[Rfam]
The family of this 236-nucleotide RNA sequence from Smithella sp. D17 is "Group II catalytic intron D1-D4-6". Rfam describes the family as follows. Group II introns are found in rRNA, tRNA and mRNA of organelles in fungi, plants and protists, and also in mRNA in bacteria. For this family Rfam cites "The ins and outs of group II introns" (Bonen and Vogel, Trends Genet, 2001).
RNA sequence: GCAGUUCCGUGCGGGGAAUUGUCCGAUUCACCCCGGUAGUUCAAGGGAGCGGCGUCUUGGUAACAAGGGGUCGUAAGUUUCCCAUUGGCGAAGCAGCAGGCCGUAACGCAAGAGAACCUACAAGUAGCCUUGUUAAACUGAAAAGAAGAUGCCGACCCAGUGGACAGAUGGGGAAGGCCGAAGUCGCGGGCAGGGAAACGGAAGCAGUCCGAGGGAUCUUCCGGGGUAGCAAGGGC
Dot-bracket structure: ...........(((((..([.[.[.)....))))).(.((..(((((((((((.(((((....))))).)))))...)).))..)).)).)................................((.((((((............(((((((((..((((.........))))...))).....((.(((((.(.......]].]).))))).)).))))))))))))).)......

Record summary: It scores 66 bits against the family's covariance model. The source organism's lineage runs through Bacteria, Pseudomonadati, Thermodesulfobacteriota, Smithellaceae and Smithella.